mir-33 microRNA precursor family: a 72-nucleotide RNA sequence from Ixodes scapularis. The base pairs follow the family's consensus structure, which was predicted with PFOLD. A reference for the family is Li et al. (2009), "Direct sequencing and expression analysis of a large number of miRNAs in Aedes aegypti and a multi-species survey of novel mosquito miRNAs", BMC Genomics. The match comes from Rfam's covariance-model search (72 bits).

[Rfam]
RNA sequence: CUGCGGUGCAUUGCAGUUGCAUUGCACGUCCACCGUACCGAGUGGUGCAGUGCUUCUGCAGUGCAGGCGCAG
Numbered sequence: 001c002u003g004c005g006g007u008g009c010a011u012u013g014c015a016g017u018u019g020c021a022u023u024g025c026a027c028g029u030c031c032a033c034c035g036u037a038c039c040g041a042g043u044g045g046u047g048c049a050g051u052g053c054u055u056c057u058g059c060a061g062u063g064c065a066g067g068c069g070c071a072g
Base pairs, nucleotide, nucleotide: 001072002071003070004069006068007065008064009063010062011061012060013059014058015057016056019053021051022050023049024048025047026046027045